RNA sequence: GGGUUGGCAUUAGCUCAAGUGGUUACUUUCUCACUCUGGACUUCCCAUCCAUCUAUCCCUGCGCUGGAGUUCAAGACCCGCAGGUGCUUUCUGACCCUUUA
Numbered sequence: 001g002g003g004u005u006g007g008c009a010u011u012a013g014c015u016c017a018a019g020u021g022g023u024u025a026c027u028u029u030c031u032c033a034c035u036c037u038g039g040a041c042u043u044c045c046c047a048u049c050c051a052u053c054u055a056u057c058c059c060u061g062c063g064c065u066g067g068a069g070u071u072c073a074a075g076a077c078c079c080g081c082a083g084g085u086g087c088u089u090u091c092u093g094a095c096c097c098u099u100u101a
Stems, first nucleotide, its partner, number of pairs: 002096006013085003019081004027075003
This 101-nucleotide sequence from Prolemur simus belongs to the Rfam family "Vault RNA". Pairs were carried over by alignment from the consensus structure, which is taken from published work. Taxonomically the source falls in Prolemur (Eukaryota, Eumetazoa, Craniata, Eutheria).